[Rfam]
RNA sequence: GCCACAUGCCCUCCUUGGGCGUUUCCUCCCUAGACUUAAAGGCCGCCGUUCUCGGCGGCUUUUUUUUGCAUCGAU
Numbered sequence: 001g002c003c004a005c006a007u008g009c010c011c012u013c014c015u016u017g018g019g020c021g022u023u024u025c026c027u028c029c030c031u032a033g034a035c036u037u038a039a040a041g042g043c044c045g046c047c048g049u050u051c052u053c054g055g056c057g058g059c060u061u062u063u064u065u066u067u068g069c070a071u072c073g074a075u
Stems, first nucleotide, its partner, number of pairs: 008020004041060008
RNA: Makes More Granules Regulator RNA (mmgR)